[Rfam]
RNA sequence: GAAUACGACCAUGGGAGUCCGGGGGGAACCGGGCUGAGAGUACGGCUGAGCCGCCGUUAACCAUUUGAACCUGUUGGGUCAUGCCAGCGUAGGGAGAGGUGGAUCAACACACUU
Numbered sequence: 001g002a003a004u005a006c007g008a009c010c011a012u013g014g015g016a017g018u019c020c021g022g023g024g025g026g027a028a029c030c031g032g033g034c035u036g037a038g039a040g041u042a043c044g045g046c047u048g049a050g051c052c053g054c055c056g057u058u059a060a061c062c063a064u065u066u067g068a069a070c071c072u073g074u075u076g077g078g079u080c081a082u083g084c085c086a087g088c089g090u091a092g093g094g095a096g097a098g099g100u101g102g103a104u105c106a107a108c109a110c111a112c113u114u
Stems, first nucleotide, its partner, number of pairs: 006102001008100003011064004016058001017034005042057004070093004074087004
RNA: TPP riboswitch aptamer (THI element)